[Rfam]
RNA sequence: GGGAGGUGUAGAGGCGCGGUGUGCAAAAGUAGCCAACGGUGAGGAGCGGGAGUCCCAUGAGCCGGGGUGAAAGGGUAGACCGCCGAAGUUCGGUGCUAUUCCCGUAACACCAGGCUGGUUUGGCAUUGAAUAAGUGCCGGACUGUCACCCGCAGGCGCUUGUAUGCGCUGCUGGAACAAGCGCGUGCUUUUGAUGCCGGCCGGGUGGAGAGCUAUCACCGGG
Number, nucleotide and partner (000 for none) at each position: 001g000002g000003g000004a000005g000006g000007u000008g215009u214010a213011g212012a000013g000014g000015c000016g083017c082018g081019g080020u079021g000022u077023g076024c075025a000026a000027a000028a000029g000030u000031a000032g068033c067034c066035a000036a000037c064038g063039g062040u061041g000042a000043g000044g000045a000046g000047c000048g000049g000050g000051a000052g000053u000054c000055c000056c000057a000058u000059g000060a000061g040062c039063c038064g037065g000066g034067g033068u032069g000070a000071a000072a000073g000074g000075g024076u023077a022078g000079a020080c019081c018082g017083c016084c000085g000086a000087a116088g115089u114090u113091c000092g111093g110094u109095g108096c000097u106098a105099u000100u000101c000102c000103c000104g000105u098106a097107a000108c095109a094110c093111c092112a000113g090114g089115c088116u087117g143118g142119u141120u140121u139122g138123g137124c136125a135126u134127u133128g000129a000130a000131u000132a000133a127134g126135u125136g124137c123138c122139g121140g120141a119142c118143u117144g000145u207146c206147a205148c204149c203150c202151g201152c000153a000154g000155g000156c000157g000158c000159u000160u000161g000162u000163a000164u000165g000166c000167g000168c000169u000170g000171c000172u000173g000174g000175a000176a000177c000178a000179a000180g000181c000182g000183c000184g000185u000186g000187c000188u000189u000190u000191u000192g000193a000194u000195g000196c000197c000198g000199g000200c000201c151202g150203g149204g148205u147206g146207g145208a000209g000210a000211g000212c011213u010214a009215u008216c000217a000218c000219c000220g000221g000222g000

The family of this 222-nucleotide RNA sequence from Desulfoscipio gibsoniae is "Lysine riboswitch aptamer".
NCBI's taxonomy places the organism under Bacteria, Bacillati, Desulfallaceae, Desulfoscipio, Desulfoscipio gibsoniae.
A search with the family's covariance model found it, with a score of 99 bits.